The record is an 87-nucleotide RNA sequence from Gossypium hirsutum, which matches "MIR7486 microRNA precursor family" in Rfam. The source organism's lineage runs through Eukaryota, Euphyllophyta, Gunneridae, rosids and Gossypium. The base pairs follow the family's consensus structure, which was predicted with RNAalifold.

RNA sequence: CACGUAAGCGCGAGAUGCUUACGUGGAAGGAAAUUGCAUCCUUAAGGGAGCGAUUUCCUUCCACAUAAGCAUCUCGCGCUUACGUGG
Numbered sequence: 001c002a003c004g005u006a007a008g009c010g011c012g013a014g015a016u017g018c019u020u021a022c023g024u025g026g027a028a029g030g031a032a033a034u035u036g037c038a039u040c041c042u043u044a045a046g047g048g049a050g051c052g053a054u055u056u057c058c059u060u061c062c063a064c065a066u067a068a069g070c071a072u073c074u075c076g077c078g079c080u081u082a083c084g085u086g087g
Base pairs, nucleotide, nucleotide: 001086002085003084004083005082006081007080008079009078010077011076012075013074014073015072016071017070018069019068020067021066023064024063025062026061027060028059029058030057031056032055033054034053035052036051037050040047041046